[Rfam]
The family of this 172-nucleotide RNA from Saccharothrix sp. ST-888 is "c-di-AMP riboswitch aptamer (ydaO/yuaA leader)". The source organism's lineage runs through Bacteria, Actinomycetota, Actinomycetes, Pseudonocardiales and Saccharothrix.

RNA sequence: CAGCUGGCACCGCAGAACGCACCUACGGCAGGGGCGGGGGAACCAGGUAAGUCGCCCGAGAGCCGGUCAGAAGUGACCGACUCCGGGCUAGGGGUGAAGCCGUGCACAGCACGGCCGGGCAACUCCAGCCCGAAUCCGACAGCUCACCUCGCAGGCGUGGGAGAGGAACGCA
Numbered sequence: 001c002a003g004c005u006g007g008c009a010c011c012g013c014a015g016a017a018c019g020c021a022c023c024u025a026c027g028g029c030a031g032g033g034g035c036g037g038g039g040g041a042a043c044c045a046g047g048u049a050a051g052u053c054g055c056c057c058g059a060g061a062g063c064c065g066g067u068c069a070g071a072a073g074u075g076a077c078c079g080a081c082u083c084c085g086g087g088c089u090a091g092g093g094g095u096g097a098a099g100c101c102g103u104g105c106a107c108a109g110c111a112c113g114g115c116c117g118g119g120c121a122a123c124u125c126c127a128g129c130c131c132g133a134a135u136c137c138g139a140c141a142g143c144u145c146a147c148c149u150c151g152c153a154g155g156c157g158u159g160g161g162a163g164a165g166g167a168a169c170g171c172a
Stems, first nucleotide, its partner, number of pairs: 011157003018033001020031001034152006044091001092137003100114004117131004